[Rfam]
RNA sequence: UUAUACACAAGGCAAACCUAUCGAAAAAUAGGGACGCAAAUCCAUGGGUCUAAAUACCCAGUGAUAUGAUCGCCAGGUUGCUGAG
Numbered sequence: 001u002u003a004u005a006c007a008c009a010a011g012g013c014a015a016a017c018c019u020a021u022c023g024a025a026a027a028a029u030a031g032g033g034a035c036g037c038a039a040a041u042c043c044a045u046g047g048g049u050c051u052a053a054a055u056a057c058c059c060a061g062u063g064a065u066a067u068g069a070u071c072g073c074c075a076g077g078u079u080g081c082u083g084a085g
Stems, first nucleotide, its partner, number of pairs: 012037002017032005040079001042077002045075003048070003055064001
Record summary
The family of this 85-nucleotide RNA sequence from Paenibacillus naphthalenovorans is "c-di-GMP-I riboswitch aptamer". It scores 67 bits against the family's covariance model. The base pairs follow the family's consensus structure, which is taken from published work. About the family: GEMM was predicted in a large-scale screen for bacterial structured RNA regulatory elements.